Small nucleolar RNA snoR74: a 135-nucleotide RNA from Asparagus officinalis. The family's RNA type in Rfam is H/ACA-box small nucleolar RNA. The match comes from Rfam's covariance-model search (62 bits). The family has 9 seed sequences and 1,404 matches in Rfam 15.1. Gene Ontology terms of the family: nucleolus and RNA processing. A reference for the family is Marker et al. (2002), "Experimental RNomics: identification of 140 candidates for small non-messenger RNAs in the plant Arabidopsis thaliana", Curr Biol.
[Rfam]
RNA sequence: AAAUAGGAAGGGGUUUGUUCAUUGUUGUCUCCAUGAACACACCUCACAAAUUUAGGGAAAUCAUCUACACUGUUAUUGGGUGAACCUCUGUAGACUAUGUUGAUGACAAAAGGUUCAAUAGACAGUGAAACAUGC
Numbered sequence: 001a002a003a004u005a006g007g008a009a010g011g012g013g014u015u016u017g018u019u020c021a022u023u024g025u026u027g028u029c030u031c032c033a034u035g036a037a038c039a040c041a042c043c044u045c046a047c048a049a050a051u052u053u054a055g056g057g058a059a060a061u062c063a064u065c066u067a068c069a070c071u072g073u074u075a076u077u078g079g080g081u082g083a084a085c086c087u088c089u090g091u092a093g094a095c096u097a098u099g100u101u102g103a104u105g106a107c108a109a110a111a112g113g114u115u116c117a118a119u120a121g122a123c124a125g126u127g128a129a130a131c132a133u134g135c
Stems, first nucleotide, its partner, number of pairs: 005052002011044002014041001016039006068127007081117007